[Rfam]
RNA sequence: GUUUAUUUCGGGCGUGUUUGUUGUAUCAUUGGAUUUAAUGAAAUGUUUAGAGGUGCAGUAGGCAUGGCUUUGAGUAGAU
Numbered sequence: 001g002u003u004u005a006u007u008u009c010g011g012g013c014g015u016g017u018u019u020g021u022u023g024u025a026u027c028a029u030u031g032g033a034u035u036u037a038a039u040g041a042a043a044u045g046u047u048u049a050g051a052g053g054u055g056c057a058g059u060a061g062g063c064a065u066g067g068c069u070u071u072g073a074g075u076a077g078a079u
Stems, first nucleotide, its partner, number of pairs: 001079008010070003014065013030049005
Rfam assigns this 79-nucleotide RNA sequence from Suricata suricatta to the family "mir-1902 microRNA precursor family". Lineage of the source: Eukaryota > Chordata > Gnathostomata > Dipnotetrapodomorpha > Suricata. Rfam 15.1 lists 1,188 matches to the family in 123 species. Rfam links the family to the GO terms RISC complex and miRNA-mediated post-transcriptional gene silencing.